[Rfam]
RNA: GA-cis RNA
RNA sequence: GAGAGGAGACAUCCAUGGAACUUGGUUCCAUUUAGGAUGGAUGUCGACGACCUAUCACAGAGCGUAGCGAUGUGAUGUCACCUAAG
Numbered sequence: 001g002a003g004a005g006g007a008g009a010c011a012u013c014c015a016u017g018g019a020a021c022u023u024g025g026u027u028c029c030a031u032u033u034a035g036g037a038u039g040g041a042u043g044u045c046g047a048c049g050a051c052c053u054a055u056c057a058c059a060g061a062g063c064g065u066a067g068c069g070a071u072g073u074g075a076u077g078u079c080a081c082c083u084a085a086g
Base pairs, nucleotide, nucleotide: 008045009044010043011042012041013040015031016030017029018028019027020026054076055075056074058072059071062068063067